Purine riboswitch aptamer: a 102-nucleotide sequence from Litchfieldia salsa.

[Rfam]
RNA sequence: UCAUUAUUUAAUAUAUUUUGUCGUAUAGUGUUGGGGAUAUGGCCCAAAAGUUUCUACCGAGCUACCGUAAAUGGCUUGACUACGAUUAAUAAUAUAGUGGGA
Numbered sequence: 001u002c003a004u005u006a007u008u009u010a011a012u013a014u015a016u017u018u019u020g021u022c023g024u025a026u027a028g029u030g031u032u033g034g035g036g037a038u039a040u041g042g043c044c045c046a047a048a049a050g051u052u053u054c055u056a057c058c059g060a061g062c063u064a065c066c067g068u069a070a071a072u073g074g075c076u077u078g079a080c081u082a083c084g085a086u087u088a089a090u091a092a093u094a095u096a097g098u099g100g101g102a
Stems, first nucleotide, its partner, number of pairs: 018088001020086006029049001031047005058078007